[Rfam]
RNA sequence: GUCCUCGGUAAGACAUUAAACUGCCGACUGUUACAUACGGCAUCGGGUCGCUCCCGAUGGCUCAGACGGAUGUGACAGUAAAAAUAAAAUAUAAGGCUGCCUUAUGAGCGGGUGGCUGCAAUCCGGAACGGAGAAGUCCGUCUGGAAUGCGGUCUGGUUCAUUAUGCCCAUUUGCAGCCUGCAC
Dot-bracket structure: ...........................(((((.(((.((.(((((.........)))))[[[[[..)).))).)))))...............(((((((....]]]]].....(((((........(((((....))))).......)))))....................)))))))....
Numbered sequence: 001g002u003c004c005u006c007g008g009u010a011a012g013a014c015a016u017u018a019a020a021c022u023g024c025c026g027a028c029u030g031u032u033a034c035a036u037a038c039g040g041c042a043u044c045g046g047g048u049c050g051c052u053c054c055c056g057a058u059g060g061c062u063c064a065g066a067c068g069g070a071u072g073u074g075a076c077a078g079u080a081a082a083a084a085u086a087a088a089a090u091a092u093a094a095g096g097c098u099g100c101c102u103u104a105u106g107a108g109c110g111g112g113u114g115g116c117u118g119c120a121a122u123c124c125g126g127a128a129c130g131g132a133g134a135a136g137u138c139c140g141u142c143u144g145g146a147a148u149g150c151g152g153u154c155u156g157g158u159u160c161a162u163u164a165u166g167c168c169c170a171u172u173u174g175c176a177g178c179c180u181g182c183a184c
Stems, first nucleotide, its partner, number of pairs: 028078005034072003038068002041059005060109005094180007115153005128141005